Rfam assigns this 101-nucleotide sequence from Pseudochrobactrum saccharolyticum to the family "rpsB sRNA". Rfam 15.1 lists 245 matches to the family in 245 species. The source organism's lineage runs through Bacteria, Pseudomonadati, Pseudomonadota, Brucellaceae and Pseudochrobactrum. The family's consensus secondary structure is taken from published work. The literature on the family includes a 2009 paper in BMC Genomics by Meyer et al., "Identification of candidate structured RNAs in the marine organism 'Candidatus Pelagibacter ubique'".
RNA sequence: CACACACGGGAUUUGGGUUAUGGGCGGGAGAAAUCCGCACAACGCCUCCGGUGGCACAUUUGUGCCUCAGCCCGUGGAGGUUCAACCGGAAAAGGAAAAUA
Numbered sequence: 001c002a003c004a005c006a007c008g009g010g011a012u013u014u015g016g017g018u019u020a021u022g023g024g025c026g027g028g029a030g031a032a033a034u035c036c037g038c039a040c041a042a043c044g045c046c047u048c049c050g051g052u053g054g055c056a057c058a059u060u061u062g063u064g065c066c067u068c069a070g071c072c073c074g075u076g077g078a079g080g081u082u083c084a085a086c087c088g089g090a091a092a093a094g095g096a097a098a099a100u101a
Stems, first nucleotide, its partner, number of pairs: 001079001003077001005076006015046002025037002028035001053066005